[Rfam]
FMN riboswitch aptamer (RFN element): a 151-nucleotide RNA from Actinomyces sp. oral taxon 849.
RNA sequence: CAACGUGCUCCGGGGUCGGUGAAAGUCCGAACCGGCGGUAACAGUCCGCGACCCGCUCGUGCCACGGCAGCGUCAGGCAGCCGGGGGACCAGCGGUUGAGCCGGUGGAACUCCGGCACCGACGGUGAGAGUCCGGAUGGGAGGAUGCGCGU
Numbered sequence: 001c002a003a004c005g006u007g008c009u010c011c012g013g014g015g016u017c018g019g020u021g022a023a024a025g026u027c028c029g030a031a032c033c034g035g036c037g038g039u040a041a042c043a044g045u046c047c048g049c050g051a052c053c054c055g056c057u058c059g060u061g062c063c064a065c066g067g068c069a070g071c072g073u074c075a076g077g078c079a080g081c082c083g084g085g086g087g088a089c090c091a092g093c094g095g096u097u098g099a100g101c102c103g104g105u106g107g108a109a110c111u112c113c114g115g116c117a118c119c120g121a122c123g124g125u126g127a128g129a130g131u132c133c134g135g136a137u138g139g140g141a142g143g144a145u146g147c148g149c150g151u
Base pairs, nucleotide, nucleotide: 004148005147006146007145009143010142017029018028019027031131032130033120034119035049036048037047038046044118045117053095054094055093056092057091100116101115102114103113104112122134123133124132
Dot-bracket structure: ...((((.((......(((.......))).[[((((((.....[[))))...(((((.................................)))))....(((((.......)))))]])).(((.....]]))).......)).))))...
The RFN element is a highly conserved domain that is found frequently in the 5'-untranslated regions of prokaryotic mRNAs that encode for flavin mononucleotide (FMN) biosynthesis and transport proteins. This element is a metabolite-dependent riboswitch that directly binds FMN in the absence of proteins. In Bacillus subtilis, the riboswitch most likely controls gene expression by causing premature transcription termination within the 5' untranslated region of the ribDEAHT operon and precluding access to the ribosome-binding site of ypaA mRNA.The FMN riboswitch structure, reported in present an FMN-bound six-stem junction, adopts a butterfly-like scaffold, stapled together by opposingly directed but nearly identically folded peripheral domains.
The match comes from Rfam's covariance-model search (84 bits).